[Rfam]
RNA sequence: GGCUUAAUUAUUUUUUUGGUUCCUUAACUUAUUUUUUGGUGUCGUUUUGGUCCCUUAACUUACUUUUUGGUUUCGUUUUGGUCCAUUAACUCUUCCUCCGUCAACUACUUUGGUCCUUUAUGUUAGGAUGAAUGUAUUAGAGUUAAGGGACCAAAAUGAAACCAAAAAAUAAGUUAAGCGACCAAAAUGAAACCAAAAAAUAAGUUAAGGGACCAAAACGAAACCAAAAAAUAAGUUAAGGGACUAAAACGAAACUUUUAAUAGUUAAGGGA
Numbered sequence: 001g002g003c004u005u006a007a008u009u010a011u012u013u014u015u016u017u018g019g020u021u022c023c024u025u026a027a028c029u030u031a032u033u034u035u036u037u038g039g040u041g042u043c044g045u046u047u048u049g050g051u052c053c054c055u056u057a058a059c060u061u062a063c064u065u066u067u068u069g070g071u072u073u074c075g076u077u078u079u080g081g082u083c084c085a086u087u088a089a090c091u092c093u094u095c096c097u098c099c100g101u102c103a104a105c106u107a108c109u110u111u112g113g114u115c116c117u118u119u120a121u122g123u124u125a126g127g128a129u130g131a132a133u134g135u136a137u138u139a140g141a142g143u144u145a146a147g148g149g150a151c152c153a154a155a156a157u158g159a160a161a162c163c164a165a166a167a168a169a170u171a172a173g174u175u176a177a178g179c180g181a182c183c184a185a186a187a188u189g190a191a192a193c194c195a196a197a198a199a200a201u202a203a204g205u206u207a208a209g210g211g212a213c214c215a216a217a218a219c220g221a222a223a224c225c226a227a228a229a230a231a232u233a234a235g236u237u238a239a240g241g242g243a244c245u246a247a248a249a250c251g252a253a254a255c256u257u258u259u260a261a262u263a264g265u266u267a268a269g270g271g272a
Base pairs, nucleotide, nucleotide: 003269004268005267006266007265008264014249015248016247018245019244020243022241023240024239025238026237027236028235029234030233031232032231033230034229036227037226038225039224040223

MIR2655 microRNA precursor family: a 272-nucleotide sequence from Medicago truncatula. The source organism's lineage runs through Eukaryota, Streptophytina, Pentapetalae, Trifolieae and Medicago.